[Rfam]
RNA sequence: UGGUGAGAUAGAGGUGCGGCUAUUAAGAGUAUGCAUUCAUGAGCAGGCCGGCGAUGAAGGGUGCAGAAAGGAAUAUCCGCCGAAGCAGCAGGUCAUGGCCAAGGGCCUUCUGCUGGUCUUGCCGCUAAAUAAGGGUAAGACUGUCAUCCGAGCAAAUUCGGGUGGAGCGCUAUCUUGCAC
Numbered sequence: 001u002g003g004u005g006a007g008a009u010a011g012a013g014g015u016g017c018g019g020c021u022a023u024u025a026a027g028a029g030u031a032u033g034c035a036u037u038c039a040u041g042a043g044c045a046g047g048c049c050g051g052c053g054a055u056g057a058a059g060g061g062u063g064c065a066g067a068a069a070g071g072a073a074u075a076u077c078c079g080c081c082g083a084a085g086c087a088g089c090a091g092g093u094c095a096u097g098g099c100c101a102a103g104g105g106c107c108u109u110c111u112g113c114u115g116g117u118c119u120u121g122c123c124g125c126u127a128a129a130u131a132a133g134g135g136u137a138a139g140a141c142u143g144u145c146a147u148c149c150g151a152g153c154a155a156a157u158u159c160g161g162g163u164g165g166a167g168c169g170c171u172a173u174c175u176u177g178c179a180c
Base pairs, nucleotide, nucleotide: 006175007174008173009172010171011170016080017079018078019077021075022074023073024072032065033064034063035062036061037060038059084114085113086112087111088110090108091107092106093105094104115142116141117140118139119138120137121136122135123134144165145164146163147162148161149160150159
Dot-bracket structure: .....((((((....((((.((((.......(((((((....................)))))))......)))).))))...(((((.(((((.........))))).)))))(((((((((..........))))))))).(((((((........)))))))....)))))).....

Lysine riboswitch aptamer: a 180-nucleotide RNA sequence from Thermosinus carboxydivorans. Rfam links the family to the GO term lysine biosynthetic process. Pairs were carried over by alignment from the consensus structure, which is taken from published work.